[Rfam]
tRNA: an 81-nucleotide sequence from Friedmanniomyces endolithicus. The family is grouped with related families in Rfam's "tRNA clan". It scores 59 bits against the family's covariance model. It is annotated as a transfer RNA.
RNA sequence: GGCGCUUUGGCGGAGUGGUUAACGCGCUGCCCUGCUAAGGCAGUUCCUUCGGGAGCAAGAGUUCGAAUCUCUUAGGCGUCG
Numbered sequence: 001g002g003c004g005c006u007u008u009g010g011c012g013g014a015g016u017g018g019u020u021a022a023c024g025c026g027c028u029g030c031c032c033u034g035c036u037a038a039g040g041c042a043g044u045u046c047c048u049u050c051g052g053g054a055g056c057a058a059g060a061g062u063u064c065g066a067a068u069c070u071c072u073u074a075g076g077c078g079u080c081g
Stems, first nucleotide, its partner, number of pairs: 001080007010025003027043005057073005
Dot-bracket structure: (((((((..(((..........))).(((((.......))))).............(((((.......)))))))))))).